[Rfam]
RNA sequence: GAGGAAAAGAAGAAGCACCCGCUUCUCACCUGGUUGACGCAAUGGCAGUUGGCAGGUUUACGUGAACGAAUGUGUAACAUUGACUAUGUUUCGUAAAGUGUGGGUGAAUUCAUGAAUUCAUCCGCACUUUUUUGUUUAU
Dot-bracket structure: ..........((((((....)))))).(((.....(((((....)).)))....))).........................................((((((((((((....)))))))))))).............

Annotation:
Rfam assigns this 139-nucleotide RNA from Bacillus sp. cl95 to the family "Ribosomal protein L20 leader". For this family Rfam cites "Diverse mechanisms for regulating ribosomal protein synthesis in Escherichia coli" (Zengel and Lindahl, Prog Nucleic Acid Res Mol Biol, 1994). Rfam classes the family as a cis-regulatory leader.